The family of this 43-nucleotide RNA is "ES036 (CssrF) sRNA". For this family Rfam cites "Differential expression of small RNAs under chemical stress and fed-batch fermentation in E. coli" (Rau et al., BMC Genomics, 2015). The base pairs follow the family's consensus structure, which was predicted with RNAfold. The sequence is in the family's curated seed alignment. Rfam describes the family as follows. Differentially expressed under several chemical stress conditions.
RNA sequence: AAAAUUGUGCAAAUUCAAUAUAUUGCAGGAGAUUAGUAGGCCU
Numbered sequence: 001a002a003a004a005u006u007g008u009g010c011a012a013a014u015u016c017a018a019u020a021u022a023u024u025g026c027a028g029g030a031g032a033u034u035a036g037u038a039g040g041c042c043u
Stems, first nucleotide, its partner, number of pairs: 005030002008027005